[Rfam]
RNA sequence: CCUUAAAUUUCUAGAGCAGCAUAUAAUGAUUCGCAUAUUGAGUAAAGUAUGUAAAUCAUGAUGUGCUGCUAGAGUACUUUAAGG
Numbered sequence: 001c002c003u004u005a006a007a008u009u010u011c012u013a014g015a016g017c018a019g020c021a022u023a024u025a026a027u028g029a030u031u032c033g034c035a036u037a038u039u040g041a042g043u044a045a046a047g048u049a050u051g052u053a054a055a056u057c058a059u060g061a062u063g064u065g066c067u068g069c070u071a072g073a074g075u076a077c078u079u080u081a082a083g084g
Stems, first nucleotide, its partner, number of pairs: 001084006015070010026059006033052004

The family of this 84-nucleotide RNA from Chinchilla lanigera is "mir-15 microRNA precursor family". Its family is annotated with miRNA-mediated post-transcriptional gene silencing and RISC complex in the Gene Ontology. The family has 164 seed sequences and 2,045 matches in Rfam 15.1. The source organism's lineage runs through Eukaryota, Gnathostomata, Glires, Rodentia and Chinchilla. Rfam's curators write: This family represents the related mir-15a and mir-15b sequences.